[Rfam]
RNA: mir-129 microRNA precursor family
Organism: Galbula dea
RNA sequence: UCGGAGCUUUUUGCGGUCUGGGCUUGCUGUUCCUCACGGAGCCCUCAGGAAGCCCUUACCCCAAAAAGGAUCUG
Numbered sequence: 001u002c003g004g005a006g007c008u009u010u011u012u013g014c015g016g017u018c019u020g021g022g023c024u025u026g027c028u029g030u031u032c033c034u035c036a037c038g039g040a041g042c043c044c045u046c047a048g049g050a051a052g053c054c055c056u057u058a059c060c061c062c063a064a065a066a067a068g069g070a071u072c073u074g
Base pairs, nucleotide, nucleotide: 007068008067009066010065011064012063013062015060016059017058020055021054022053023052025050027048028047